[Rfam]
Nucleotides: 061
Base pairs, nucleotide, nucleotide: 002058003057004056006055007054008053010051012049013048014047015046016045018044019043020042021041022040026039027038028037029036
Number, partner (000 for none) and nucleotide at each position: 001000a002058g003057g004056u005000c006055u007054c008053u009000c010051u011000u012049g013048c014047u015046a016045g017000a018044c019043c020042a021041g022040a023000u024000c025000u026039g027038a028037g029036c030000c031000u032000a033000g034000g035000a036029g037028c038027u039026c040022u041021c042020u043019g044018g045016c046015u047014a048013g049012u050000u051010a052000a053008g054007g055006a056004a057003c058002c059000c060000a061000c
This 61-nucleotide RNA from Lentivirus humimdef1 belongs to the Rfam family "Trans-activation response element (TAR)". The family has 45 seed sequences and 48 matches in Rfam 15.1. The sequence is in the family's curated seed alignment. Rfam describes the family as follows. This family represents the HIV trans-activation response (TAR) element which is known to be required for the trans-activation of the viral promoter and for virus replication. The TAR hairpin acts as a binding site for the Tat protein and this interaction stimulates the activity of the long terminal repeat promoter. Further experiments have shown that TAR acts as a miRNA that protects against apoptosis. By type it is a microRNA precursor.